[Rfam]
RNA sequence: GUUUAUCUUCAGGGGCAGGGUGAAAUUCCCGACCGGCGGUAAUAGGCCGCGACCUGCGCAAUUGUGCAGUUGAACUGGUGUGAUUCCAGUGCCGACAGUAUAGUCUGGAUAAAGAAGAUAGAG
Numbered sequence: 001g002u003u004u005a006u007c008u009u010c011a012g013g014g015g016c017a018g019g020g021u022g023a024a025a026u027u028c029c030c031g032a033c034c035g036g037c038g039g040u041a042a043u044a045g046g047c048c049g050c051g052a053c054c055u056g057c058g059c060a061a062u063u064g065u066g067c068a069g070u071u072g073a074a075c076u077g078g079u080g081u082g083a084u085u086c087c088a089g090u091g092c093c094g095a096c097a098g099u100a101u102a103g104u105c106u107g108g109a110u111a112a113a114g115a116a117g118a119u120a121g122a123g
Stems, first nucleotide, its partner, number of pairs: 003121008018030003032104002034094002036050004045092001054069002074090005096107003
Dot-bracket structure: ..((((((((.......(((.......))).[[((((((.....[.))))...((............))....(((((.......))))).])).(((....]])))......))))))))..
RNA: FMN riboswitch aptamer (RFN element)
Organism: Liquorilactobacillus vini